The family of this 102-nucleotide sequence from Anaerobacillus arseniciselenatis is "Purine riboswitch aptamer". The base pairs follow the family's consensus structure, which is taken from published work. The organism belongs to Anaerobacillus, within Bacteria. About the family: Riboswitches are metabolite binding domains within certain messenger RNAs that serve as precision sensors for their corresponding targets. It scores 85 bits against the family's covariance model.
[Rfam]
Nucleotides: 102
Stems, first nucleotide, its partner, number of pairs: 018088008030048006058078007
Number, partner (000 for none) and nucleotide at each position: 001000u002000g003000u004000u005000c006000a007000a008000a009000a010000a011000g012000a013000u014000g015000u016000u017000a018088c019087c020086u021085u022084c023083g024082u025081a026000u027000a028000u029000c030048c031047u032046u033045a034044g035043g036000a037000a038000u039000a040000a041000g042000g043035c044034c045033u046032a047031a048030g049000a050000g051000u052000c053000u054000c055000u056000a057000c058078c059077g060076g061075g062074u063073c064072g065000c066000c067000g068000u069000a070000a071000a072064u073063g074062a075061c076060c077059u078058g079000a080000c081025u082024a083023u084022g085021a086020a087019g088018g089000c090000a091000g092000g093000a094000g095000c096000u097000u098000u099000a100000u101000a102000g